The record is a 302-nucleotide RNA from Yersinia ruckeri, which matches "Soft rot Enterobacteriaceae Rev 39 5'UTR" in Rfam. For this family Rfam cites "Discovery and profiling of small RNAs responsive to stress conditions in the plant pathogen Pectobacterium atrosepticum" (Kwenda et al., BMC Genomics, 2016). The organism belongs to Yersinia, within Bacteria. Rfam links the family to the GO term cellular response to starvation. A search with the family's covariance model found it, with a score of 202 bits. Rfam's curators write: From bacteria cultured under starvation conditions.
Nucleotides: 302
Base pairs, nucleotide, nucleotide: 006032007031008030009029010028011027012026015022016021037075038074040072041071042070044067045066046065047064048063049059050058085254086253087252089250091249097244098243099242100241101240102239103238104235105234106233107232109119111117121141122140123139124138125137127136128135129134142161143160145158146157147156148155162193163192164190169186170185173182195230196229197228198227199226200225201224202223203222204221205220206219208217209216210215256288257287258286259285260284261281263276264275
Number, partner (000 for none) and nucleotide at each position: 001000a002000a003000a004000c005000a006032u007031u008030g009029u010028c011027a012026c013000a014000a015022u016021g017000a018000u019000a020000a021016u022015g023000a024000c025000u026012g027011u028010g029009a030008u031007a032006a033000c034000u035000c036000u037075g038074u039000a040072g041071g042070u043000a044067u045066u046065c047064g048063u049059u050058c051000g052000a053000c054000a055000a056000u057000a058050g059049a060000c061000a062000u063048g064047u065046g066045a067044a068000c069000a070042a071041c072040c073000a074038a075037u076000u077000a078000u079000g080000a081000a082000a083000g084000c085254u086253c087252u088000g089250g090000u091249c092000c093000a094000a095000g096000u097244g098243a099242u100241u101240a102239a103238c104235c105234u106233a107232g108000u109119c110000c111117u112000a113000a114000u115000u116000a117111g118000c119109g120000u121141g122140g123139u124138g125137g126000u127136g128135a129134u130000u131000a132000u133000u134129a135128u136127c137125c138124c139123a140122c141121c142161g143160u144000g145158c146157g147156g148155g149000g150000c151000u152000g153000c154000a155148c156147u157146u158145g159000g160143a161142c162193g163192a164190a165000g166000a167000a168000a169186g170185g171000c172000a173182u174000a175000g176000a177000a178000a179000u180000c181000a182173a183000g184000c185170c186169u187000u188000a189000a190164u191000c192163u193162c194000a195230a196229g197228a198227a199226a200225a201224c202223c203222c204221c205220c206219g207000c208217a209216c210215c211000g212000a213000a214000a215210g216209g217208u218000c219206c220205g221204g222203g223202g224201g225200u226199u227198u228197u229196u230195u231000a232107u233106u234105g235104g236000c237000c238103g239102u240101u241100a242099a243098u244097c245000a246000g247000a248000c249091g250089c251000g252087g253086g254085g255000a256288a257287c258286a259285u260284a261281a262000a263276a264275u265000g266000c267000a268000c269000a270000a271000c272000a273000g274000a275264a276263u277000a278000a279000a280000a281261u282000c283000c284260u285259g286258u287257g288256u289000g290000g291000c292000u293000c294000g295000c296000a297000a298000a299000a300000g301000u302000u